[Rfam]
RNA sequence: UAGAUUGAAGCCAGUUGAUUAGGGUGCUUAGCUGUUAACUAAGUGUUUGUGGGUUUAAGUCCCAUUGGUCUAG
Numbered sequence: 001u002a003g004a005u006u007g008a009a010g011c012c013a014g015u016u017g018a019u020u021a022g023g024g025u026g027c028u029u030a031g032c033u034g035u036u037a038a039c040u041a042a043g044u045g046u047u048u049g050u051g052g053g054u055u056u057a058a059g060u061c062c063c064a065u066u067g068g069u070c071u072a073g
Stems, first nucleotide, its partner, number of pairs: 001072007010025003027043005049065005

The record is a 73-nucleotide RNA sequence, which matches "tRNA" in Rfam. It is annotated as a transfer RNA. The base pairs follow the family's consensus structure, which is taken from published work. About the family: Transfer RNA (tRNA) molecules are approximately 80 nucleotides in length.